[Rfam]
RNA: Alphaproteobacterial ar14
RNA sequence: GAAAUUUCGCGGAGCCGUUCCUCCUCCCCAGGCUCUGUGAAUACGACCAGUAUCUCCUCCUCCCGAUCGCUGGUCGGACCCAAACGAUACCCGCCGGACCUCCUCCCCCGGCGGGUAUUGUUU
Numbered sequence: 001g002a003a004a005u006u007u008c009g010c011g012g013a014g015c016c017g018u019u020c021c022u023c024c025u026c027c028c029c030a031g032g033c034u035c036u037g038u039g040a041a042u043a044c045g046a047c048c049a050g051u052a053u054c055u056c057c058u059c060c061u062c063c064c065g066a067u068c069g070c071u072g073g074u075c076g077g078a079c080c081c082a083a084a085c086g087a088u089a090c091c092c093g094c095c096g097g098a099c100c101u102c103c104u105c106c107c108c109c110g111g112c113g114g115g116u117a118u119u120g121u122u123u
Stems, first nucleotide, its partner, number of pairs: 007040010045075007052067002087118011